[Rfam]
A member of the RNA family "Eukaryotic large subunit ribosomal RNA" from Thamnocephalis sphaerospora, 598 nucleotides of a longer RNA.
RNA sequence: AAAGAAGACCCUGUUGAGCUUGACUCUAGUUUGACAUUGUGAAGAGACAUAUGGGGUGUAGAAUAAGUGGGAGACGCUUGCGUCGCCGGUGAAAUACCACUACCCGUACUGUUUCUUUACUUAUUCCAUGAAGUGGAGCCUGGCCUUCAUUGGCCAUCCUUCUAGCAUUAAGCGGUGUCCUUCGGGACGCCGUGAUCCACGUGGGAGACAUUGUCAGGUGGGGAGUUUGGCUGGGGCGGCACAUCUGUUAAACAAUAACGCAGGUGUCCUAAGGGGGGCUCAUUGAGAACAGAAAUCUCAAGUAGAACAAAAGGGUAAAAGCCCCCUUGAUUCCGAUUUUCAGUGUGAAUACGAACCAUGAAAGUGUGGCCUAUCGAUCCUUUUGAUCCGUGGAGUUUACGGUAAGAGGUGUCAGAAAAGUUACCACAGGGAUAACUGGCUUGUGGCGGCCAAGCGUUCAUAGCGACGUCGCUUUUUGAUCCUUCGAUGUCGGCUCUUCCUAUCAUACUGAAGCAGAAUUCAGUAAGCGUUGGAUUGUUCACCCACUAACAGGGAACGUGAGCUGGGUUUAGACCGUCGUGAGACAGGUUAGUUUUAC
Numbered sequence: 001a002a003a004g005a006a007g008a009c010c011c012u013g014u015u016g017a018g019c020u021u022g023a024c025u026c027u028a029g030u031u032u033g034a035c036a037u038u039g040u041g042a043a044g045a046g047a048c049a050u051a052u053g054g055g056g057u058g059u060a061g062a063a064u065a066a067g068u069g070g071g072a073g074a075c076g077c078u079u080g081c082g083u084c085g086c087c088g089g090u091g092a093a094a095u096a097c098c099a100c101u102a103c104c105c106g107u108a109c110u111g112u113u114u115c116u117u118u119a120c121u122u123a124u125u126c127c128a129u130g131a132a133g134u135g136g137a138g139c140c141u142g143g144c145c146u147u148c149a150u151u152g153g154c155c156a157u158c159c160u161u162c163u164a165g166c167a168u169u170a171a172g173c174g175g176u177g178u179c180c181u182u183c184g185g186g187a188c189g190c191c192g193u194g195a196u197c198c199a200c201g202u203g204g205g206a207g208a209c210a211u212u213g214u215c216a217g218g219u220g221g222g223g224a225g226u227u228u229g230g231c232u233g234g235g236g237c238g239g240c241a242c243a244u245c246u247g248u249u250a251a252a253c254a255a256u257a258a259c260g261c262a263g264g265u266g267u268c269c270u271a272a273g274g275g276g277g278g279c280u281c282a283u284u285g286a287g288a289a290c291a292g293a294a295a296u297c298u299c300a301a302g303u304a305g306a307a308c309a310a311a312a313g314g315g316u317a318a319a320a321g322c323c324c325c326c327u328u329g330a331u332u333c334c335g336a337u338u339u340u341c342a343g344u345g346u347g348a349a350u351a352c353g354a355a356c357c358a359u360g361a362a363a364g365u366g367u368g369g370c371c372u373a374u375c376g377a378u379c380c381u382u383u384u385g386a387u388c389c390g391u392g393g394a395g396u397u398u399a400c401g402g403u404a405a406g407a408g409g410u411g412u413c414a415g416a417a418a419a420g421u422u423a424c425c426a427c428a429g430g431g432a433u434a435a436c437u438g439g440c441u442u443g444u445g446g447c448g449g450c451c452a453a454g455c456g457u458u459c460a461u462a463g464c465g466a467c468g469u470c471g472c473u474u475u476u477u478g479a480u481c482c483u484u485c486g487a488u489g490u491c492g493g494c495u496c497u498u499c500c501u502a503u504c505a506u507a508c509u510g511a512a513g514c515a516g517a518a519u520u521c522a523g524u525a526a527g528c529g530u531u532g533g534a535u536u537g538u539u540c541a542c543c544c545a546c547u548a549a550c551a552g553g554g555a556a557c558g559u560g561a562g563c564u565g566g567g568u569u570u571a572g573a574c575c576g577u578c579g580u581g582a583g584a585c586a587g588g589u590u591a592g593u594u595u596u597a598c
Stems, first nucleotide, its partner, number of pairs: 002596002010430004015426002017422005023226004030218007039120010050108006066101005073084002124206005134199004142155004172193007229242001230240003243265006268369002274326006280306002283301006307316002331355003336350004357366003380408006388402004439480001441478001443477001445473006454464002491566001492564004496558001497555005504529001507524006531545003535541001572590004576585003

A search with the family's covariance model found it, with a score of 3036 bits.